[Rfam]
RNA sequence: CCAGACGGCUGGACGGCCGCCCUGCACGGCAACGUGUGGGGAGGAAAGUCCGGGCUCCACGGAAGCACGGUGCCGGAUAACGUCCGGCGGGGGUGACCCUAGGGAAAGUGCCACAGAAAGCAAACCGCCGCUGUCCGCAGCGGUAAGGGUGAAAGGGUGCGGUAAGAGCGCACCGCGGACCCGGCAACGGGAACGGCACGGCAAACCCCACCGGGAGCAAGACCAAAUAGGGGCGACAGUUUUCGGCCUUUUGGCCGGAACCAAACGCGCUUUCGCGUAGUCGCCCGGGUCGGUCGCGUGAGGCGUCCGGUAACGGACGUCCCAGAUGAAUGGCCGUCGCCAUGGGUAACCAUGGGACAGAACCCGGCUUACAGGCCGUCUGGCGCA
Dot-bracket structure: ((((((((((((((((((.(((((((((....)))))))))....[[[.[[[[[((((....[[[..((((((((((.....)))))(((((....)))).)((...(((((............(((((((((....)))))))..)).......((((((.......))))))(((..((((....))))..)).)..)))..)))))))))))))...((((......((((((............................((((..]]].))))..)))))).....))))......((((((((....))))))))..........)))))))........................]]]]]]]].).))))))))))....